About this RNA
The family of this 132-nucleotide sequence from Castor canadensis is "Small nucleolar RNA SNORA25". It scores 117 bits against the family's covariance model. Lineage of the source: Eukaryota > Amniota > Glires > Castorimorpha > Castor. From the family's description: ACA25 is a member of the H/ACA class of snoRNA that guide the sites of modification of uridines to pseudouridines. The family's consensus secondary structure was predicted with RNAfold.
RNA sequence: AGGUCAUUUCAAAGAGGGCUUUUAGGGCUAUAAAACCAAGAGCUCUUCACGCUGUGCCCUAAGACUGAAGUUCUCCAUGGGAUGCCAUAGUCACUCAGUAGUAGUGCUGCACUUUCCUAAGGAGAUACACAG
Number, nucleotide and partner (000 for none) at each position: 001a000002g059003g058004u000005c056006a055007u054008u000009u000010c000011a000012a000013a000014g047015a046016g045017g044018g043019c042020u041021u040022u000023u039024a000025g000026g037027g036028c000029u000030a000031u000032a000033a000034a000035a000036c027037c026038a000039a023040g021041a020042g019043c018044u017045c016046u015047u014048c000049a000050c000051g000052c000053u000054g007055u006056g005057c000058c003059c002060u000061a000062a000063g000064a000065c000066u000067g000068a000069a000070g000071u000072u125073c124074u123075c122076c121077a000078u000079g118080g117081g116082a115083u000084g000085c000086c000087a000088u109089a108090g107091u000092c106093a105094c104095u103096c000097a000098g000099u000100a000101g000102u000103a095104g094105u093106g092107c090108u089109g088110c000111a000112c000113u000114u000115u082116c081117c080118u079119a000120a000121g076122g075123a074124g073125a072126u000127a000128c000129a000130c000131a000132g000